[Rfam]
RNA: Alphaproteobacterial ar15
Nucleotides: 098
Stems, first nucleotide, its partner, number of pairs: 001037005007031002047065007071092009
Number, partner (000 for none) and nucleotide at each position: 001037a002036g003035u004034c005033g006000a007031c008030g009000g010000g011000u012000c013000g014000c015000u016000c017000c018000u019000c020000c021000c022000a023000c024000u025000c026000u027000u028000c029000a030008c031007g032000u033005c034004g035003a036002c037001u038000g039000u040000u041000c042000c043000c044000c045000u046000c047065u048064g049063g050062a051061g052060g053059u054000c055000a056000a057000a058000a059053a060052c061051c062050u063049u064048c065047a066000g067000u068000c069000u070000u071092g072091g073090c074089c075088g076087g077086a078085c079084u080000u081000u082000u083000u084079a085078g086077u087076c088075c089074g090073g091072c092071c093000u094000u095000u096000u097000u098000u